The family of this 130-nucleotide sequence from Salvelinus namaycush is "Small nucleolar RNA SNORA17". Rfam links the family to the GO terms RNA processing and nucleolus. snoRNA ACA 17 belongs to the H/ACA family of snoRNAs and is predicted to guide pseudouridylation of the 28S rRNA at positions U4659 and U4598. A reference for the family is Ofengand and Bakin (1997), "Mapping to nucleotide resolution of pseudouridine residues in large subunit ribosomal RNAs from representative eukaryotes, prokaryotes, archaebacteria, mitochondria and chloroplasts", J Mol Biol. The family's RNA type in Rfam is H/ACA-box small nucleolar RNA. Clan: SNORA17 clan.
RNA sequence: GCUGCCACUAGAGGUGUUGCAGCGUGACUUCACAGUGUUGUGUCUGUGUCAUUAGCUCGCUGAAAGGUGCCAUGUGUCACCUAGUUGCCCUAGCACUGUGGGCACUUGGAGAGUUUUGUGGCACAACAUU
Numbered sequence: 001g002c003u004g005c006c007a008c009u010a011g012a013g014g015u016g017u018u019g020c021a022g023c024g025u026g027a028c029u030u031c032a033c034a035g036u037g038u039u040g041u042g043u044c045u046g047u048g049u050c051a052u053u054a055g056c057u058c059g060c061u062g063a064a065a066g067g068u069g070c071c072a073u074g075u076g077u078c079a080c081c082u083a084g085u086u087g088c089c090c091u092a093g094c095a096c097u098g099u100g101g102g103c104a105c106u107u108g109g110a111g112a113g114u115u116u117u118g119u120g121g122c123a124c125a126a127c128a129u130u
Stems, first nucleotide, its partner, number of pairs: 002062001004060002008055004013050003019047004023042006067124007078113001080111001082109001084107001086104005